The family of this 74-nucleotide RNA from Trifolium medium is "MIR5272 microRNA precursor family".
Rfam links the family to the GO terms miRNA-mediated post-transcriptional gene silencing and RISC complex.
A search with the family's covariance model found it, with a score of 68 bits.
RNA sequence: UUGAAAGUAAAUUGAUUUAUGUUUGGAUACAUUAACCCAAAAUUGAUUUUUACCAAUUCAUAUUGUUUGGAUAG
Numbered sequence: 001u002u003g004a005a006a007g008u009a010a011a012u013u014g015a016u017u018u019a020u021g022u023u024u025g026g027a028u029a030c031a032u033u034a035a036c037c038c039a040a041a042a043u044u045g046a047u048u049u050u051u052a053c054c055a056a057u058u059c060a061u062a063u064u065g066u067u068u069g070g071a072u073a074g
Base pairs, nucleotide, nucleotide: 011061012060014058015057016056017055021053022052025049026048027047028046030045031044033042